This 141-nucleotide RNA from Agrococcus pavilionensis belongs to the Rfam family "FMN riboswitch aptamer (RFN element)". Its family is annotated with FMN binding in the Gene Ontology.

RNA sequence: AACGUGCCCGGGGUCAGUGCAAGUCUGAACCGGCGGUGACAGUCCGCGACCCGAGAGGCCCGCUCGAACCCGAGCGGCCGAUCGGCUGAGCUGGUGGAAUUCCAGCACCGACGGUGAGAGUCCGGAGGGGAGGCGCACGUG
Numbered sequence: 001a002a003c004g005u006g007c008c009c010g011g012g013g014u015c016a017g018u019g020c021a022a023g024u025c026u027g028a029a030c031c032g033g034c035g036g037u038g039a040c041a042g043u044c045c046g047c048g049a050c051c052c053g054a055g056a057g058g059c060c061c062g063c064u065c066g067a068a069c070c071c072g073a074g075c076g077g078c079c080g081a082u083c084g085g086c087u088g089a090g091c092u093g094g095u096g097g098a099a100u101u102c103c104a105g106c107a108c109c110g111a112c113g114g115u116g117a118g119a120g121u122c123c124g125g126a127g128g129g130g131a132g133g134c135g136c137a138c139g140u141g
Stems, first nucleotide, its partner, number of pairs: 002140006008133002015027003029121002031110002033047004042108002051085004090106005112124003
Annotation: The organism belongs to Agrococcus pavilionensis, within Bacteria.